[Rfam]
RNA sequence: UUAUUCGGUAGCCACUUUGAGUUACGAUAAUUACUAUGUUAAUUUAUAAGAUUAUAGUAACUUCAUAGUAAGUGGUUUACUGUAACGUUAUGGUAAAUAUCUCCAUGUGUUAUAGUAACCCAACUAUCGUAAAUAUGUAAUGACAUUAUCGUAAAUUAGUAUAUAAAAUUAUAGUAAAUGGAGGUGGCUACGGAAUAA
Numbered sequence: 001u002u003a004u005u006c007g008g009u010a011g012c013c014a015c016u017u018u019g020a021g022u023u024a025c026g027a028u029a030a031u032u033a034c035u036a037u038g039u040u041a042a043u044u045u046a047u048a049a050g051a052u053u054a055u056a057g058u059a060a061c062u063u064c065a066u067a068g069u070a071a072g073u074g075g076u077u078u079a080c081u082g083u084a085a086c087g088u089u090a091u092g093g094u095a096a097a098u099a100u101c102u103c104c105a106u107g108u109g110u111u112a113u114a115g116u117a118a119c120c121c122a123a124c125u126a127u128c129g130u131a132a133a134u135a136u137g138u139a140a141u142g143a144c145a146u147u148a149u150c151g152u153a154a155a156u157u158a159g160u161a162u163a164u165a166a167a168a169u170u171a172u173a174g175u176a177a178a179u180g181g182a183g184g185u186g187g188c189u190a191c192g193g194a195a196u197a198a
Base pairs, nucleotide, nucleotide: 001198002197003196004195005194006193008191009190010189011188012187013186014185015184016183017182018181022177023176024175025174027172028171029170030169031168032167035163036162037161038160039159040158041157042156043155044154045153046152047151050150051149052148054146055145066131067130072127073126074125075124076123077122078117079116080115081114082113083112084111085110086109087108088107092102093101
The family of this 198-nucleotide RNA from Miscanthus lutarioriparius is "MIR6217 microRNA precursor family".
Pairs were carried over by alignment from the consensus structure, which was predicted with RNAalifold.
Its family is annotated with RISC complex and miRNA-mediated post-transcriptional gene silencing in the Gene Ontology.
Rfam 15.1 lists 2,266 matches to the family in 13 species.
Taxonomically the source falls in Miscanthus (Eukaryota, Euphyllophyta, Andropogonodae, Saccharinae).